[Rfam]
RNA sequence: UUUAUUCAAAUUUGUAUGGAGUUGGAACUUUUGCCUGCGUUUGCCGCUAGGGGCGCUGUUCCAACUUCAUACAAAUUGGUGUUA
Numbered sequence: 001u002u003u004a005u006u007c008a009a010a011u012u013u014g015u016a017u018g019g020a021g022u023u024g025g026a027a028c029u030u031u032u033g034c035c036u037g038c039g040u041u042u043g044c045c046g047c048u049a050g051g052g053g054c055g056c057u058g059u060u061c062c063a064a065c066u067u068c069a070u071a072c073a074a075a076u077u078g079g080u081g082u083u084a
Stems, first nucleotide, its partner, number of pairs: 009077008018068001020066009034052003039047002
Annotation:
mir-2807 microRNA precursor family: an 84-nucleotide RNA from Bombyx mori. On this family, see Liu et al., BMC Genomics 2010: "MicroRNAs of Bombyx mori identified by Solexa sequencing". Gene Ontology terms of the family: miRNA-mediated post-transcriptional gene silencing and RISC complex. The family has 8 seed sequences and 5,120 matches in Rfam 15.1. NCBI's taxonomy places the organism under Eukaryota, Ecdysozoa, Pancrustacea, Heteroneura, Bombyx.